Rfam assigns this 120-nucleotide sequence from Xylophilus sp. Leaf220 to the family "Glycine riboswitch aptamer".
It scores 51 bits against the family's covariance model.
Gene Ontology term of the family: glycine biosynthetic process.
This family represents the bacterial glycine riboswitch.

[Rfam]
RNA sequence: GAACAGCCGUCUGGAGAGACGUCGCAGCGCACCCCGGUGCCGCUGGCGGCGCACCGAAGGAGCAAGCCCCGCAACCGUUGCGGUGUGAAUCUCUCAGGUACCGAGGACAGGGGGAGCGGC
Numbered sequence: 001g002a003a004c005a006g007c008c009g010u011c012u013g014g015a016g017a018g019a020c021g022u023c024g025c026a027g028c029g030c031a032c033c034c035c036g037g038u039g040c041c042g043c044u045g046g047c048g049g050c051g052c053a054c055c056g057a058a059g060g061a062g063c064a065a066g067c068c069c070c071g072c073a074a075c076c077g078u079u080g081c082g083g084u085g086u087g088a089a090u091c092u093c094u095c096a097g098g099u100a101c102c103g104a105g106g107a108c109a110g111g112g113g114g115a116g117c118g119g120c
Base pairs, nucleotide, nucleotide: 007114008113010111011110012109013108020051021050022049023048024047025046053099054098055097056095057094060093061092062091066086067085